[Rfam]
RNA sequence: CAAGAGUUAGUCCCUGUGAUUACCCGUUUUUCGGCUAUCGGAAUACUAAUGAUGA
Numbered sequence: 001c002a003a004g005a006g007u008u009a010g011u012c013c014c015u016g017u018g019a020u021u022a023c024c025c026g027u028u029u030u031u032c033g034g035c036u037a038u039c040g041g042a043a044u045a046c047u048a049a050u051g052a053u054g055a
Base pairs, nucleotide, nucleotide: 006050007049008048009047010046011045017040018039019038020037024034025033026032
Dot-bracket structure: .....((((((.....((((...(((.....)))..))))....)))))).....
Transposase-1 RNA: a 55-nucleotide RNA from Loigolactobacillus bifermentans. Rfam classes the family as a small RNA. The match comes from Rfam's covariance-model search (62 bits). Pairs were carried over by alignment from the consensus structure, which is taken from published work.